[Rfam]
The record is a 193-nucleotide sequence, which matches "MIR159 microRNA precursor family" in Rfam. The literature on the family includes a 2004 paper in Mol Cell by Jones-Rhoades and Bartel, "Computational identification of plant microRNAs and their targets, including a stress-induced miRNA".
RNA sequence: GAUGAAGAAGAAGAGCUCCCUUUCGAUCCAAUUCAGGAGAGGAAGUGGUAGGAUGCAGCUGCCGGUUCAUGGAUACCUCUGGAGUGCAGGGCAAAUAGUCCUACCCUUUCAUGGGUUUGCAUGACUCGGGAGAUGAACCCGCCAUUGUCUUCCUCUAUUGAUUGGAUUGAAGGGAGCUCCUCUAGCUACAUCU
Numbered sequence: 001g002a003u004g005a006a007g008a009a010g011a012a013g014a015g016c017u018c019c020c021u022u023u024c025g026a027u028c029c030a031a032u033u034c035a036g037g038a039g040a041g042g043a044a045g046u047g048g049u050a051g052g053a054u055g056c057a058g059c060u061g062c063c064g065g066u067u068c069a070u071g072g073a074u075a076c077c078u079c080u081g082g083a084g085u086g087c088a089g090g091g092c093a094a095a096u097a098g099u100c101c102u103a104c105c106c107u108u109u110c111a112u113g114g115g116u117u118u119g120c121a122u123g124a125c126u127c128g129g130g131a132g133a134u135g136a137a138c139c140c141g142c143c144a145u146u147g148u149c150u151u152c153c154u155c156u157a158u159u160g161a162u163u164g165g166a167u168u169g170a171a172g173g174g175a176g177c178u179c180c181u182c183u184a185g186c187u188a189c190a191u192c193u
Base pairs, nucleotide, nucleotide: 013179014178015177016176017175018174019173020172024169025168026167027166028165029164030163037156059132060131062129063128064127068123069122070121071120076115077114078113